[Rfam]
RNA sequence: CGCUUUUUUCGCCCAGGCGGAGCUCGCCCCCCUACACAAAUAAUGGUGGAUUUUAUCCAUAACAAUAAAGAUCGAUAUGGUGUUGAAGCGAUUUGUAGAAUUUUACCGAUUGCAGCU
Numbered sequence: 001c002g003c004u005u006u007u008u009u010c011g012c013c014c015a016g017g018c019g020g021a022g023c024u025c026g027c028c029c030c031c032c033u034a035c036a037c038a039a040a041u042a043a044u045g046g047u048g049g050a051u052u053u054u055a056u057c058c059a060u061a062a063c064a065a066u067a068a069a070g071a072u073c074g075a076u077a078u079g080g081u082g083u084u085g086a087a088g089c090g091a092u093u094u095g096u097a098g099a100a101u102u103u104u105a106c107c108g109a110u111u112g113c114a115g116c117u
Base pairs, nucleotide, nucleotide: 016032017031019029020028079116081114082113089112090111092109093108095106096105097104098103